[Rfam]
RNA: T-box leader
RNA sequence: UGAAAAGUAUUGAUGGAAGAAAAUAAUGCUGCAUGUAUCUUUCAGAGAGCCGAAACCGGUGAGAAACGGCAGAUUAUGCAGUGUGAAGUUCCUUUCUGAACUGUGAGGCUGAAUACAGUAGGCCGAACCGGUGUAUCUGCCGUUAUACAGGUCUAGAGUUGAUCUGAUUUCAGAUAAUCAGGGUGGUGCCGCGAUAUCUCGUCCCUUUC
Numbered sequence: 001u002g003a004a005a006a007g008u009a010u011u012g013a014u015g016g017a018a019g020a021a022a023a024u025a026a027u028g029c030u031g032c033a034u035g036u037a038u039c040u041u042u043c044a045g046a047g048a049g050c051c052g053a054a055a056c057c058g059g060u061g062a063g064a065a066a067c068g069g070c071a072g073a074u075u076a077u078g079c080a081g082u083g084u085g086a087a088g089u090u091c092c093u094u095u096c097u098g099a100a101c102u103g104u105g106a107g108g109c110u111g112a113a114u115a116c117a118g119u120a121g122g123c124c125g126a127a128c129c130g131g132u133g134u135a136u137c138u139g140c141c142g143u144u145a146u147a148c149a150g151g152u153c154u155a156g157a158g159u160u161g162a163u164c165u166g167a168u169u170u171c172a173g174a175u176a177a178u179c180a181g182g183g184u185g186g187u188g189c190c191g192c193g194a195u196a197u198c199u200c201g202u203c204c205c206u207u208u209c
Base pairs, nucleotide, nucleotide: 007101008100015096016095017094018093026084027083028082029081030080031079038073039072040071049070050069051068052067104127107124108123109122110121129142130141131140162175163174164173165172166171180206181205182204183203191202192201193200194199